The record is a 56-nucleotide sequence from Streptomyces avermitilis, which matches "msiK RNA" in Rfam.
NCBI's taxonomy places the organism under Bacteria, Bacillati, Actinomycetota, Streptomycetaceae, Streptomyces avermitilis.
RNA sequence: GGACACCACCUUUACUCGGAUCGUCCGGCACGUUCCUGCCGGUGAAGGGGGCCCCU
Numbered sequence: 001g002g003a004c005a006c007c008a009c010c011u012u013u014a015c016u017c018g019g020a021u022c023g024u025c026c027g028g029c030a031c032g033u034u035c036c037u038g039c040c041g042g043u044g045a046a047g048g049g050g051g052c053c054c055c056u
Stems, first nucleotide, its partner, number of pairs: 009048006025042006